RNA sequence: AGUCUCCUGGUGCUUACCCACAGGAUGUGUUCUUAUACUGGUUGUAUAGAAUAAGUAGGCAGAGCAAACCUAUCCUAUAUACACCUCAGCUCAGGCCCUGUGCCAGGUCUGUAUUGUGAAUGGCGGGAGCAUGG
Number, nucleotide and partner (000 for none) at each position: 001a000002g060003u059004c058005u057006c000007c055008u054009g000010g000011u000012g000013c000014u000015u000016a000017c000018c000019c000020a000021c044022a043023g042024g000025a000026u000027g038028u037029g036030u035031u000032c000033u000034u000035a030036u029037a028038c027039u000040g000041g000042u023043u022044g021045u000046a000047u000048a000049g000050a000051a000052u000053a000054a008055g007056u000057a005058g004059g003060c002061a000062g000063a000064g000065c000066a000067a000068a000069c000070c000071u000072a000073u126074c125075c123076u122077a121078u120079a000080u000081a000082c000083a000084c000085c000086u000087c111088a110089g109090c000091u107092c106093a000094g104095g103096c102097c000098c000099u000100g000101u000102g096103c095104c094105a000106g092107g091108u000109c089110u088111g087112u000113a000114u000115u000116g000117u000118g000119a000120a078121u077122g076123g075124c000125g074126g073127g000128a000129g000130c000131a000132u000133g000134g000
RNA: Small nucleolar RNA SNORA51
Organism: Carlito syrichta